[Rfam]
RNA sequence: UCGUGCUAGGCGGGGAACUAGCGGUGCCCUGUACCCGCAAUCCGCUAUAGCGGGGCUGAGUUCCCUCUCGAGGUCCGGCCUUGUGGGACUGCUCGGGCUAAGUGGUGAGGAAGGUUGGGUCCCACGCGGCAAGGACCCACGAACCCGGUCAGGUCCGGAAGGAAGCAGCCGUAAGUGGCCAUCCUUGGGUGACGUGGGGGUGCCUGGCUGGAGCUAACUGGCCCGGUGCAAGCCGGAGGGUCGUGAUCGACAGAGGGUGCACGA
Numbered sequence: 001u002c003g004u005g006c007u008a009g010g011c012g013g014g015g016a017a018c019u020a021g022c023g024g025u026g027c028c029c030u031g032u033a034c035c036c037g038c039a040a041u042c043c044g045c046u047a048u049a050g051c052g053g054g055g056c057u058g059a060g061u062u063c064c065c066u067c068u069c070g071a072g073g074u075c076c077g078g079c080c081u082u083g084u085g086g087g088a089c090u091g092c093u094c095g096g097g098c099u100a101a102g103u104g105g106u107g108a109g110g111a112a113g114g115u116u117g118g119g120u121c122c123c124a125c126g127c128g129g130c131a132a133g134g135a136c137c138c139a140c141g142a143a144c145c146c147g148g149u150c151a152g153g154u155c156c157g158g159a160a161g162g163a164a165g166c167a168g169c170c171g172u173a174a175g176u177g178g179c180c181a182u183c184c185u186u187g188g189g190u191g192a193c194g195u196g197g198g199g200g201u202g203c204c205u206g207g208c209u210g211g212a213g214c215u216a217a218c219u220g221g222c223c224c225g226g227u228g229c230a231a232g233c234c235g236g237a238g239g240g241u242c243g244u245g246a247u248c249g250a251c252a253g254a255g256g257g258u259g260c261a262c263g264a
Stems, first nucleotide, its partner, number of pairs: 001264006009057003012030004017025003034054005063257006072248004077242006084235003090228002094225006102218002104215003113209008121198006127189001130187005137178004146171004154163003
A member of the RNA family "Bacterial large signal recognition particle RNA" from Sphaerobacter thermophilus, 264 nucleotides long. Pairs were carried over by alignment from the consensus structure, which is taken from published work. A search with the family's covariance model found it, with a score of 201 bits. The organism belongs to Sphaerobacter thermophilus, within Bacteria. Rfam describes the family as follows. The signal recognition particle (SRP) is a universally conserved ribonucleoprotein involved in the co-translational targeting of proteins to membranes.